[Rfam]
RNA sequence: AGCAGAGUAGAAGCCUGCGCGUUAAGUGCUGGCCGGACGGGGAGUUGCCGGACAGACGAAAAGCGUGCCUUGCGGUGCAGGCUUCGCAUCCCGCUGCU
Dot-bracket structure: (((((....(((((((((((((...((.(((.((((...[[[.[...)))).)))))...(((.....)))))).)))))))))).].]]]..)))))
This 98-nucleotide sequence from Ligaoa zhengdingensis belongs to the Rfam family "THF (Tetrahydrofolate) riboswitch aptamer". The base pairs follow the family's consensus structure, which is taken from published work. Rfam links the family to the GO term tetrahydrofolate metabolic process.